[Rfam]
A member of the RNA family "SAM riboswitch aptamer (S box leader)" from Peptococcus niger, 100 nucleotides long. Rfam links the family to the GO term regulation of gene expression. The match comes from Rfam's covariance-model search (83 bits). Pairs were carried over by alignment from the consensus structure, which is taken from published work.
RNA sequence: CAUUUAUCAAGAGCGGUGGAGGGAACGGCCCUGUGAAACCCGGCAACAGCCUUCGGGCAAUGUGCUAAAUCCGUCAGACAUGUCGUCUGGGAGAUAAGUG
Numbered sequence: 001c002a003u004u005u006a007u008c009a010a011g012a013g014c015g016g017u018g019g020a021g022g023g024a025a026c027g028g029c030c031c032u033g034u035g036a037a038a039c040c041c042g043g044c045a046a047c048a049g050c051c052u053u054c055g056g057g058c059a060a061u062g063u064g065c066u067a068a069a070u071c072c073g074u075c076a077g078a079c080a081u082g083u084c085g086u087c088u089g090g091g092a093g094a095u096a097a098g099u100g
Stems, first nucleotide, its partner, number of pairs: 001100008013041001015040003021031003025074004042066004047062002049058003070092001075089005